[Rfam]
RNA sequence: AAAUGAAUUUAGCCGAAUGCCUAACUGGCAGCGGGGGACUAAACUUUGGGGUGAAUCCAAGGAUAUACUUGGUAGGGACGCUCUCUUCCCGAACCCGUCAACUAACCUCGUAGGCUUAGAGAGAGGUGAU
Numbered sequence: 001a002a003a004u005g006a007a008u009u010u011a012g013c014c015g016a017a018u019g020c021c022u023a024a025c026u027g028g029c030a031g032c033g034g035g036g037g038a039c040u041a042a043a044c045u046u047u048g049g050g051g052u053g054a055a056u057c058c059a060a061g062g063a064u065a066u067a068c069u070u071g072g073u074a075g076g077g078a079c080g081c082u083c084u085c086u087u088c089c090c091g092a093a094c095c096c097g098u099c100a101a102c103u104a105a106c107c108u109c110g111u112a113g114g115c116u117u118a119g120a121g122a123g124a125g126g127u128g129a130u
Base pairs, nucleotide, nucleotide: 011116012115013114014113018030019029020028031111032110033109034108035107036106039048049096050095051094057072058071059070060069075090076089077088078087
Overview: A member of the RNA family "c-di-AMP riboswitch aptamer (ydaO/yuaA leader)" from Caloramator fervidus, 130 nucleotides long. Gene Ontology terms of the family: cyclic-di-AMP binding and regulation of gene expression. The match comes from Rfam's covariance-model search (101 bits). Pairs were carried over by alignment from the consensus structure. Lineage of the source: Bacteria > Bacillati > Bacillota > Eubacteriales > Caloramator.